[Rfam]
RNA sequence: CUAUAUGCACCCUGUAGAGCCGAAUUUGUGUAAUAUUUACCGCAAAUUCGUAUCUACGGGAAUACAUGGG
Numbered sequence: 001c002u003a004u005a006u007g008c009a010c011c012c013u014g015u016a017g018a019g020c021c022g023a024a025u026u027u028g029u030g031u032a033a034u035a036u037u038u039a040c041c042g043c044a045a046a047u048u049c050g051u052a053u054c055u056a057c058g059g060g061a062a063u064a065c066a067u068g069g070g
Base pairs, nucleotide, nucleotide: 002068003067004066006064007063010060011059012058016055017054018053021050022049023048024047025046026045027044028043029042030041
Shown here is a 70-nucleotide RNA sequence from Electrophorus electricus, a member of the family "mir-10 microRNA precursor family". On this family, see Lee and Ambros, Science 2001: "An extensive class of small RNAs in Caenorhabditis elegans". The base pairs follow the family's consensus structure, which was predicted with PFOLD.